[Rfam]
S10-Clostridia ribosomal protein leader: a 77-nucleotide sequence from Clostridium frigidicarnis. On this family, see Eckert and Weinberg, BMC Microbiol 2020: "Discovery of 20 novel ribosomal leader candidates in bacteria and archaea". Rfam classes the family as a cis-regulatory leader.

RNA sequence: UAACAGUGAUGAGACAAGAGGUUGCCGAACUUACGGGGAAUUCUUGUUGAGCAUGUCAGGAUCUUAGAAUCCGACGU
Dot-bracket structure: .............(((.(((....(((......)))....))).)))......((((.((((......)))))))).

The family's consensus secondary structure is taken from published work.